[Rfam]
RNA sequence: CUUUUUGCGGUCUGGGCUUGCUGUACAUAACUCGAUAGCCGGAAGCCCUUACCCCAAAAAGCA
Number, nucleotide and partner (000 for none) at each position: 001c061002u060003u059004u058005u057006u056007g055008c000009g053010g052011u051012c000013u000014g048015g047016g046017c045018u000019u043020g000021c042022u041023g000024u000025a000026c000027a000028u000029a000030a000031c000032u000033c000034g000035a000036u000037a000038g000039c000040c000041g022042g021043a019044a000045g017046c016047c015048c014049u000050u000051a011052c010053c009054c000055c007056a006057a005058a004059a003060a002061g001062c000063a000
mir-129 microRNA precursor family: a 63-nucleotide RNA from Canis lupus. Its family is annotated with RISC complex, miRNA-mediated post-transcriptional gene silencing and gene silencing by miRNA in the Gene Ontology. The source organism's lineage runs through Eukaryota, Vertebrata, Mammalia, Theria and Canis lupus.